[Rfam]
RNA sequence: UGGCUUGGUUUCCUGGGGGGUGGGCUCAGCCUACUCCUCCUCCCCUCAGCUAAGCCUACAGUAGACAGGCCAGGCAUCCUCCCCAGGGGGAGAGGCAUUUAAGUAAGGAGCCUCACCUGGGCUGCCCUAGCCUCACAUUU
Numbered sequence: 001u002g003g004c005u006u007g008g009u010u011u012c013c014u015g016g017g018g019g020g021u022g023g024g025c026u027c028a029g030c031c032u033a034c035u036c037c038u039c040c041u042c043c044c045c046u047c048a049g050c051u052a053a054g055c056c057u058a059c060a061g062u063a064g065a066c067a068g069g070c071c072a073g074g075c076a077u078c079c080u081c082c083c084c085a086g087g088g089g090g091a092g093a094g095g096c097a098u099u100u101a102a103g104u105a106a107g108g109a110g111c112c113u114c115a116c117c118u119g120g121g122c123u124g125c126c127c128u129a130g131c132c133u134c135a136c137a138u139u140u
Stems, first nucleotide, its partner, number of pairs: 002056006015044006022037003067133004072128003078121003087114004
RNA: Small Cajal body specific RNA 21